Nucleotides: 084
Base pairs, nucleotide, nucleotide: 001084002083003082004081005080006079007078008077009076010075011074012073013072014071015070016069017068018067019066020065021064022063023062024061025060026059029056030055031054032053033052034051035050036049037048038047039046040045
Number, partner (000 for none) and nucleotide at each position: 001084u002083a003082u004081u005080a006079g007078g008077u009076u010075g011074g012073u013072g014071c015070a016069a017068a018067a019066g020065u021064c022063a023062u024061u025060g026059c027000a028000a029056u030055u031054u032053u033052u034051g035050c036049u037048g038047u039046u040045a041000a042000a043000a044000a045040u046039a047038a048037u049036g050035g051034c052033a053032a054031a055030a056029a057000c058000c059026g060025c061024a062023a063022u064021g065020a066019c067018u068017u069016u070015u071014g072013c073012a074011c075010c076009a077008a078007c079006c080005u081004a082003a083002u084001a